A member of the RNA family "Small Cajal body specific RNA 4" from Microtus ochrogaster, 128 nucleotides long.
Its family is annotated with RNA processing, nucleolus and Cajal body in the Gene Ontology.
A reference for the family is Darzacq et al. (2002), "Cajal body-specific small nuclear RNAs: a novel class of 2'-O-methylation and pseudouridylation guide RNAs", EMBO J.
Rfam 15.1 lists 634 matches to the family in 510 species.
RNA sequence: ACUGGAGGACCAAGAAGGUUGAGUCUGAUGAAGCAGGACUUGGCUGAUACACUCCUCCUAGACAAAGGGGUGGAGAAAAGAGCCCUUACUGGAGAAAACCACAGCGUUGACUGUACGACCCAACAUUU
Numbered sequence: 001a002c003u004g005g006a007g008g009a010c011c012a013a014g015a016a017g018g019u020u021g022a023g024u025c026u027g028a029u030g031a032a033g034c035a036g037g038a039c040u041u042g043g044c045u046g047a048u049a050c051a052c053u054c055c056u057c058c059u060a061g062a063c064a065a066a067g068g069g070g071u072g073g074a075g076a077a078a079a080g081a082g083c084c085c086u087u088a089c090u091g092g093a094g095a096a097a098a099c100c101a102c103a104g105c106g107u108u109g110a111c112u113g114u115a116c117g118a119c120c121c122a123a124c125a126u127u128u
Base pairs, nucleotide, nucleotide: 002061003060004058005057006056007055008054009053017045018044019043021041022040023039024038025037026036068121069120070119071118078112081108082107083106085104086103090101091100092099

About the family: scaRNAs are a specific class of small nuclear RNAs which localise to the Cajal bodies and guide the modification of RNA polymerase II transcribed spliceosomal RNAs U1, U2, U4, U5 and U12. ACA26 belongs to the H/ACA box class of guide RNAs as it has the predicted hairpin-hinge-hairpin-tail structure, conserved H/ACA-box motifs and is found associated with GAR1. The source organism's lineage runs through Eukaryota, Eumetazoa, Craniata, Theria and Microtus.